[Rfam]
RNA sequence: UUUUACACUGAGUGGCCGAAUUAUUGUGAUCUCUGAAUGCAUAAUAAUCCGGCCACUCAGUGUAUAU
Numbered sequence: 001u002u003u004u005a006c007a008c009u010g011a012g013u014g015g016c017c018g019a020a021u022u023a024u025u026g027u028g029a030u031c032u033c034u035g036a037a038u039g040c041a042u043a044a045u046a047a048u049c050c051g052g053c054c055a056c057u058c059a060g061u062g063u064a065u066a067u
Base pairs, nucleotide, nucleotide: 004064005063006062007061008060009059010058011057012056013055014054015053016052017051020048021047022046023045024044025043026042027041028040
Source information: The record is a 67-nucleotide RNA sequence from Cnephaeus nilssonii, which matches "mir-9256 microRNA precursor family" in Rfam. Rfam links the family to the GO terms RISC complex and miRNA-mediated post-transcriptional gene silencing. Taxonomically the source falls in Cnephaeus (Eukaryota, Bilateria, Boreoeutheria, Laurasiatheria). A search with the family's covariance model found it, with a score of 81 bits.